[Rfam]
RNA sequence: GCAUGUGUAUGCGCCUCAAUCCAUAUGUGUUGGAGUGGAAUGGAAUGAAAUUUAGUUCAAUUACACUCCACUCCACUUCAACACAUGUGGAUUGAGAUGAAUCCAUGC
Numbered sequence: 001g002c003a004u005g006u007g008u009a010u011g012c013g014c015c016u017c018a019a020u021c022c023a024u025a026u027g028u029g030u031u032g033g034a035g036u037g038g039a040a041u042g043g044a045a046u047g048a049a050a051u052u053u054a055g056u057u058c059a060a061u062u063a064c065a066c067u068c069c070a071c072u073c074c075a076c077u078u079c080a081a082c083a084c085a086u087g088u089g090g091a092u093u094g095a096g097a098u099g100a101a102u103c104c105a106u107g108c
Base pairs, nucleotide, nucleotide: 004107005106006105007104009102010101012099013098016095017094018093019092020091021090022089023088024087025086026085027084028083029082030081031080032079035076036075037074038073039072041070042069043068046065047064
RNA: MIR5565 microRNA precursor family
Organism: Miscanthus lutarioriparius